[Rfam]
About this RNA
This 125-nucleotide RNA from Phytohabitans suffuscus belongs to the Rfam family "c-di-AMP riboswitch aptamer (ydaO/yuaA leader)". The match comes from Rfam's covariance-model search (58 bits).
RNA sequence: GUCCCGAGCCCGCCGGGCAGACCCGGCCGGGCCGAGACCUCGGGGUGAAGCCGCGUUCUCGCGGCCGGGCAAUCCUUCCCGCCCGAACCCGACAGCUCACCUCGCAGGCGUGCCGGAGGGACACU
Numbered sequence: 001g002u003c004c005c006g007a008g009c010c011c012g013c014c015g016g017g018c019a020g021a022c023c024c025g026g027c028c029g030g031g032c033c034g035a036g037a038c039c040u041c042g043g044g045g046u047g048a049a050g051c052c053g054c055g056u057u058c059u060c061g062c063g064g065c066c067g068g069g070c071a072a073u074c075c076u077u078c079c080c081g082c083c084c085g086a087a088c089c090c091g092a093c094a095g096c097u098c099a100c101c102u103c104g105c106a107g108g109c110g111u112g113c114c115g116g117a118g119g120g121a122c123a124c125u
Stems, first nucleotide, its partner, number of pairs: 008109003014025003026105002029102003033042002043090003051064004067084004